[Rfam]
RNA: FMN riboswitch aptamer (RFN element)
RNA sequence: AGCUGUCUUCGGGGCGGGGUGUGAUUCCCCACCGGCGGUAAUGCGGUUUUUGGCCGUUAGCCCGCGAGCAUGUGCUGAUUUUGGUGAGAUUCCAAAGCCGACGGUAUAGUCCGGAUGGAAGAAGAACUGC
Dot-bracket structure: .....(((((......(((.......))).[[((((((.....................[[))))..((....))....(((((.......)))))]])).(((....]]))).......))))).....